[Rfam]
Glycine riboswitch aptamer: a 92-nucleotide RNA sequence from Streptomyces sp. NWU339. Taxonomically the source falls in Streptomyces (Bacteria, Bacillati, Actinomycetes, Kitasatosporales).

Nucleotides: 092
Base pairs, nucleotide, nucleotide: 001090003088004087005086006085007084008083015030016029017028018027032075033074034073036070039069041067045062046061047060048059049058050057
Number, partner (000 for none) and nucleotide at each position: 001090c002000a003088c004087c005086u006085c007084u008083g009000a010000a011000a012000a013000g014000c015030a016029g017028g018027c019000g020000c021000u022000u023000u024000u025000g026000c027018g028017c029016c030015u031000c032075g033074c034073c035000c036070a037000c038000g039069g040000u041067g042000c043000a044000a045062g046061c047060c048059g049058c050057g051000a052000a053000c054000u055000u056000u057050c058049g059048c060047g061046g062045c063000g064000a065000a066000g067041c068000u069039c070036u071000c072000a073034g074033g075032c076000c077000c078000c079000a080000u081000g082000a083008c084007a085006g086005a087004g088003g089000g090001g091000g092000a